[Rfam]
RNA: JUMPstart RNA
Organism: Shewanella sp. SNU WT4
RNA sequence: GGGCAAUUUAGGAGCCGCAACCUAUGGGCGGUAGCGUG
Numbered sequence: 001g002g003g004c005a006a007u008u009u010a011g012g013a014g015c016c017g018c019a020a021c022c023u024a025u026g027g028g029c030g031g032u033a034g035c036g037u038g
Stems, first nucleotide, its partner, number of pairs: 009024004